[Rfam]
RNA sequence: AGGCCUGGAGAGAGAAUUAGGGUCUGAUCCGUAGCCUCCAUGGCAGCUGUUGAUCAGCCGUUGCCUCACUCUUUUGCUUCA
Numbered sequence: 001a002g003g004c005c006u007g008g009a010g011a012g013a014g015a016a017u018u019a020g021g022g023u024c025u026g027a028u029c030c031g032u033a034g035c036c037u038c039c040a041u042g043g044c045a046g047c048u049g050u051u052g053a054u055c056a057g058c059c060g061u062u063g064c065c066u067c068a069c070u071c072u073u074u075u076g077c078u079u080c081a
Stems, first nucleotide, its partner, number of pairs: 008073005014067002018063003022059001024057006032049004
The record is an 81-nucleotide RNA from Cnephaeus nilssonii, which matches "mir-574 microRNA precursor family" in Rfam. NCBI's taxonomy places the organism under Eukaryota, Bilateria, Eutheria, Yangochiroptera, Cnephaeus. The base pairs follow the family's consensus structure, which was predicted with RNAalifold. The literature on the family includes a 2007 paper in Cancer Res by Lui et al., "Patterns of known and novel small RNAs in human cervical cancer". Rfam 15.1 lists 4,084 matches to the family in 7 species.